[Rfam]
RNA sequence: GAAAGGCCGGGUCUUUAUCCGGCUGGACGCGCGGGGAAAGCGUGUCUCAUUUAGG
Numbered sequence: 001g002a003a004a005g006g007c008c009g010g011g012u013c014u015u016u017a018u019c020c021g022g023c024u025g026g027a028c029g030c031g032c033g034g035g036g037a038a039a040g041c042g043u044g045u046c047u048c049a050u051u052u053a054g055g
Stems, first nucleotide, its partner, number of pairs: 005024008025047007